Description:
Shown here is a 74-nucleotide RNA from Urocolius indicus, a member of the family "Small nucleolar RNA SNORD19". NCBI's taxonomy places the organism under Eukaryota, Deuterostomia, Theropoda, Neognathae, Urocolius. Rfam classes the family as a C/D-box small nucleolar RNA.
[Rfam]
RNA sequence: GAGAAAUGAGGAUAAAGGUUUUAUCUUACUUCUGUAGUGAAGACUUCAGAUCCAACUCUGAUCUCACACUGAAG
Numbered sequence: 001g002a003g004a005a006a007u008g009a010g011g012a013u014a015a016a017g018g019u020u021u022u023a024u025c026u027u028a029c030u031u032c033u034g035u036a037g038u039g040a041a042g043a044c045u046u047c048a049g050a051u052c053c054a055a056c057u058c059u060g061a062u063c064u065c066a067c068a069c070u071g072a073a074g
Base pairs, nucleotide, nucleotide: 001065002064003063004062